RNA sequence: CCUUCGCAAGGUGAUGGCGUUCCACCUUCCCCAACCGCCUCGUUCGGAGGCUGAUGACGCCUGGUAUGAC
Number, nucleotide and partner (000 for none) at each position: 001c000002c000003u000004u000005c000006g000007c000008a000009a000010g026011g025012u024013g023014a000015u000016g061017g060018c059019g058020u057021u056022c000023c013024a012025c011026c010027u000028u000029c000030c000031c000032c000033a000034a000035c000036c000037g051038c050039c049040u048041c000042g000043u000044u000045c000046g000047g000048a040049g039050g038051c037052u000053g000054a000055u000056g021057a020058c019059g018060c017061c016062u000063g000064g000065u000066a000067u000068g000069a000070c000
RNA: Fluoride riboswitch aptamer (crcB RNA motif)
Organism: Cedecea neteri